The record is an 88-nucleotide RNA from Pelomonas sp. HMWF004, which matches "Burkholderia RNA 7 (anti-hemB)" in Rfam. About the family: This RNA motif was identified by computational search in b-proteobacteria Burkholderia. Co-purified with Hfq, expression confirmed by Northern blot. The match comes from Rfam's covariance-model search (69 bits). Gene Ontology terms of the family: protein binding and bacterial biofilm matrix.
Nucleotides: 088
Base pairs, nucleotide, nucleotide: 003025004024005023006022007021008020027053028052029051030050031049032048060080061079062078063077064076065075066074067073
Number, partner (000 for none) and nucleotide at each position: 001000u002000c003025c004024c005023u006022g007021c008020u009000u010000u011000u012000c013000c014000u015000c016000c017000c018000u019000g020008a021007g022006c023005a024004g025003g026000a027053g028052c029051c030050u031049u032048a033000a034000c035000g036000u037000g038000a039000u040000g041000a042000c043000a044000g045000c046000g047000a048032u049031a050030a051029g052028g053027c054000u055000u056000u057000c058000u059000c060080g061079c062078c063077c064076c065075g066074g067073u068000c069000u070000u071000g072000a073067a074066c075065c076064g077063g078062g079061g080060c081000u082000u083000u084000u085000u086000u087000u088000u